The family of this 46-nucleotide RNA sequence from Cupressus jiangensis is "Plastid-ycf3 group II-D1 intron". The family's consensus secondary structure was predicted with LocARNA.

RNA sequence: AUUCUUUCUGUCGUGUAUCCCCGAUUUAUGCAACCUUAGAUGCUUU
Dot-bracket structure: .........((((........))))......(.(.......).)..